[Rfam]
RNA sequence: AAAUAGCCUUGUUAGGUGAGGCUACUGUACCAGAGAUAAGCUACUGCCCAGAAACGUCCAAAGACGCCAACGGGUCAACAGGAAUUUUCGAAUUAAGGAAAUUUUUAACGUAGCUGGGUCUGACCCUAUGCUGUACAGUGCUGAAACUCAAUGAAGGGGUGCGG
Number, nucleotide and partner (000 for none) at each position: 001a000002a000003a000004u000005a000006g160007c159008c158009u157010u156011g152012u151013u096014a000015g148016g147017u146018g000019a000020g142021g141022c140023u000024a000025c138026u137027g136028u135029a134030c133031c000032a132033g131034a000035g000036a000037u000038a000039a000040g114041c113042u112043a111044c110045u000046g075047c074048c073049c072050a000051g000052a000053a000054a000055c066056g065057u064058c063059c000060a000061a000062a000063g058064a057065c056066g055067c000068c000069a000070a000071c000072g049073g048074g047075u046076c000077a000078a000079c000080a000081g105082g104083a103084a102085u000086u000087u099088u098089c097090g000091a000092a000093u000094u000095a000096a013097g089098g088099a087100a000101a000102u084103u083104u082105u081106u000107a000108a000109c000110g044111u043112a042113g041114c040115u000116g126117g125118g124119u000120c000121u000122g000123a000124c118125c117126c116127u000128a000129u000130g000131c033132u032133g030134u029135a028136c027137a026138g025139u000140g022141c021142u020143g000144a000145a000146a017147c016148u015149c000150a000151a012152u011153g000154a000155a000156g010157g009158g008159g007160u006161g000162c000163g000164g000